Shown here is a 317-nucleotide RNA from Orthonyx spaldingii, a member of the family "7SK RNA". 7SK was discovered as an abundant small nuclear RNA in the mid-70s but a possible function has only recently been suggested. The family's consensus secondary structure is taken from published work. Clan: 7SK clan.
RNA sequence: GGAUAUGAAGGCAAUCUGGCUAUGAGAUCUGAUAUGACAUUGAUUUGACUGAUCUGGCUAGUUUAGGCGGGUGUCCCCUUUCUUCCUCAACAUUCCAUGUGUGUUCCUCCUGAGCUAUGUGCUUGGUUAAUGAAGAUAGCCUCCCCAAUAGACAUGGUAUUGCUCAUUGGUUAGGGGCUUGUGGUAGCUGUGCUCCCCUGCUGGAAGGUCUAAGAAAGCUCAAGGUCCAUUUGUAGAAGAAUGCAGGGUAGUCAAGCAUCCAAUACUGAAGAUAUAUCCAAAUGAGAAGCUGCAUGCAGAAGUGUGCCAGUGGCUUU
Numbered sequence: 001g002g003a004u005a006u007g008a009a010g011g012c013a014a015u016c017u018g019g020c021u022a023u024g025a026g027a028u029c030u031g032a033u034a035u036g037a038c039a040u041u042g043a044u045u046u047g048a049c050u051g052a053u054c055u056g057g058c059u060a061g062u063u064u065a066g067g068c069g070g071g072u073g074u075c076c077c078c079u080u081u082c083u084u085c086c087u088c089a090a091c092a093u094u095c096c097a098u099g100u101g102u103g104u105u106c107c108u109c110c111u112g113a114g115c116u117a118u119g120u121g122c123u124u125g126g127u128u129a130a131u132g133a134a135g136a137u138a139g140c141c142u143c144c145c146c147a148a149u150a151g152a153c154a155u156g157g158u159a160u161u162g163c164u165c166a167u168u169g170g171u172u173a174g175g176g177g178c179u180u181g182u183g184g185u186a187g188c189u190g191u192g193c194u195c196c197c198c199u200g201c202u203g204g205a206a207g208g209u210c211u212a213a214g215a216a217a218g219c220u221c222a223a224g225g226u227c228c229a230u231u232u233g234u235a236g237a238a239g240a241a242u243g244c245a246g247g248g249u250a251g252u253c254a255a256g257c258a259u260c261c262a263a264u265a266c267u268g269a270a271g272a273u274a275u276a277u278c279c280a281a282a283u284g285a286g287a288a289g290c291u292g293c294a295u296g297c298a299g300a301a302g303u304g305u306g307c308c309a310g311u312g313g314c315u316u317u
Stems, first nucleotide, its partner, number of pairs: 001096003006089003010085002013081002018078002024075002027072005033066001035061001038056002042054004104157002108152002110126006127148002135143002187257003193251002196248006209238001211236001214234001216232003280317003286308001289303003293299001